[Rfam]
RNA sequence: AUGUAUGAUAGAGGUGCAGUUUUCAAUAGUAUGCUUACGGAGAAGUUUGGGCUUUGGUGAUGUAAGUUGAAAGGGUAAACUGCCGAAGAGUAAAUUUUCCCAAUAAAAAUUUACUCUGGUCAUUCGGUUAAUAGCCGCAUGACUGUCAUCAAGUUAUUUGAUGGAGCGCUAUCAGUUCA
Numbered sequence: 001a002u003g004u005a006u007g008a009u010a011g012a013g014g015u016g017c018a019g020u021u022u023u024c025a026a027u028a029g030u031a032u033g034c035u036u037a038c039g040g041a042g043a044a045g046u047u048u049g050g051g052c053u054u055u056g057g058u059g060a061u062g063u064a065a066g067u068u069g070a071a072a073g074g075g076u077a078a079a080c081u082g083c084c085g086a087a088g089a090g091u092a093a094a095u096u097u098u099c100c101c102a103a104u105a106a107a108a109a110u111u112u113a114c115u116c117u118g119g120u121c122a123u124u125c126g127g128u129u130a131a132u133a134g135c136c137g138c139a140u141g142a143c144u145g146u147c148a149u150c151a152a153g154u155u156a157u158u159u160g161a162u163g164g165a166g167c168g169c170u171a172u173c174a175g176u177u178c179a
Stems, first nucleotide, its partner, number of pairs: 006174006016083007024075001033067007087117012118144006125137004146164007
Lysine riboswitch aptamer: a 179-nucleotide RNA sequence from Acetivibrio clariflavus. Pairs were carried over by alignment from the consensus structure, which is taken from published work. The source organism's lineage runs through Bacteria, Bacillota, Clostridia, Acetivibrio and Acetivibrio clariflavus. It scores 135 bits against the family's covariance model. From the family's description: Riboswitches are metabolite binding domains within certain messenger RNAs that serve as precision sensors for their corresponding targets.